Rfam assigns this 84-nucleotide sequence to the family "PyrG leader".
A search with the family's covariance model found it, with a score of 70 bits.
It is annotated as a cis-regulatory leader.
RNA sequence: GGGCUCUUUAAAAAGAGAUUGUUCGUUUAAUUAAACAAUUACUGCUCCCUUUCAAGUUUGUUUGGAAGGGAGCUUUCUUAUUUU
Numbered sequence: 001g002g003g004c005u006c007u008u009u010a011a012a013a014a015g016a017g018a019u020u021g022u023u024c025g026u027u028u029a030a031u032u033a034a035a036c037a038a039u040u041a042c043u044g045c046u047c048c049c050u051u052u053c054a055a056g057u058u059u060g061u062u063u064g065g066a067a068g069g070g071a072g073c074u075u076u077c078u079u080a081u082u083u084u
Base pairs, nucleotide, nucleotide: 044073045072046071047070048069049068050067051066052065053064054063055062
Dot-bracket structure: ...........................................((((((((((((......))))))))))))...........